[Rfam]
RNA sequence: UGCUUUGCGCAGAGGCGAUAACGUGACCAAUGAGGCUUAGCCGAGGUGCGUUUAUUGCUGGUUGAAAACUUUUCCCAAUUGCCCGCUACGGCCCCUGAAAUACGGGUGUCGUACGCAAUUUUUGCAAGCCCGAAGGGGC
Numbered sequence: 001u002g003c004u005u006u007g008c009g010c011a012g013a014g015g016c017g018a019u020a021a022c023g024u025g026a027c028c029a030a031u032g033a034g035g036c037u038u039a040g041c042c043g044a045g046g047u048g049c050g051u052u053u054a055u056u057g058c059u060g061g062u063u064g065a066a067a068a069c070u071u072u073u074c075c076c077a078a079u080u081g082c083c084c085g086c087u088a089c090g091g092c093c094c095c096u097g098a099a100a101u102a103c104g105g106g107u108g109u110c111g112u113a114c115g116c117a118a119u120u121u122u123u124g125c126a127a128g129c130c131c132g133a134a135g136g137g138g139c
Stems, first nucleotide, its partner, number of pairs: 020052005026047003034042003085116002088112005094106004128139004

Overview: A member of the RNA family "U4 spliceosomal RNA" from Pristionchus pacificus, 139 nucleotides long. Its Rfam clan is "U4 clan". Pairs were carried over by alignment from the consensus structure, which is taken from published work. The source organism's lineage runs through Eukaryota, Protostomia, Diplogasteroidea, Neodiplogasteridae and Pristionchus. A search with the family's covariance model found it, with a score of 112 bits.